[Rfam]
RNA sequence: UUAGCUUUGAUAUGUCUGGUAUUCUUGGGUUCGAGAAGCAACCAGAUUAUUAGACAUAUCGAAGAUCGC
Numbered sequence: 001u002u003a004g005c006u007u008u009g010a011u012a013u014g015u016c017u018g019g020u021a022u023u024c025u026u027g028g029g030u031u032c033g034a035g036a037a038g039c040a041a042c043c044a045g046a047u048u049a050u051u052a053g054a055c056a057u058a059u060c061g062a063a064g065a066u067c068g069c
Stems, first nucleotide, its partner, number of pairs: 008061014028043004
Dot-bracket structure: .......((((((((((((((......((((........))))....))))))))))))))........
This 69-nucleotide RNA from Auanema sp. JU1783 belongs to the Rfam family "mir-50 microRNA precursor family". The literature on the family includes a 2001 paper in Science by Lau et al., "An abundant class of tiny RNAs with probable regulatory roles in Caenorhabditis elegans". The family is grouped with related families in Rfam's "mir-50 clan". Rfam links the family to the GO terms miRNA-mediated post-transcriptional gene silencing and RISC complex.